[Rfam]
RNA sequence: UAUAUGAGUUCAACUCCAAACACUCAAAACUCAUUGUUGAAUGGAAUGAGAUAUUUUGAGUGUUUGGAAUUGAACUCGUAUA
Numbered sequence: 001u002a003u004a005u006g007a008g009u010u011c012a013a014c015u016c017c018a019a020a021c022a023c024u025c026a027a028a029a030c031u032c033a034u035u036g037u038u039g040a041a042u043g044g045a046a047u048g049a050g051a052u053a054u055u056u057u058g059a060g061u062g063u064u065u066g067g068a069a070u071u072g073a074a075c076u077c078g079u080a081u082a
Stems, first nucleotide, its partner, number of pairs: 001082013015068015030050006037043001
Dot-bracket structure: (((((((((((((.(((((((((((((((((((((.(.....).))))))...))))))))))))))).)))))))))))))